[Rfam]
RNA sequence: CUGCACGGUGCUAACCCCGGGCUUGUCGGAUUUGUACCCUUUGAAGAAGGAAGCCCCAAUGCCUGUGCUAGAUCCACACUGCCAUUCAGUGUUGCAGGCCCUGACGAAUCUUGUAUUGGUCUGUGUCAAAGCAAUGGAUACAGAU
Dot-bracket structure: ..((((((.((.......((((((.((..................))..).)))))....)))))))).............(((((...((.((((((.((................)))))))).))....)))))........
The family of this 145-nucleotide sequence from Miscanthus lutarioriparius is "small nucleolar RNA snoR134". The match comes from Rfam's covariance-model search (115 bits). Gene Ontology terms of the family: nucleolus and RNA processing.